[Rfam]
RNA: terC RNA
RNA sequence: AUCCCAGGCCGGGCCCCUCUGGCAGCCACAAGCUGCGAUGUCGGACUGGAACG
Dot-bracket structure: .....((.((((.........(((((.....)))))....)))).))......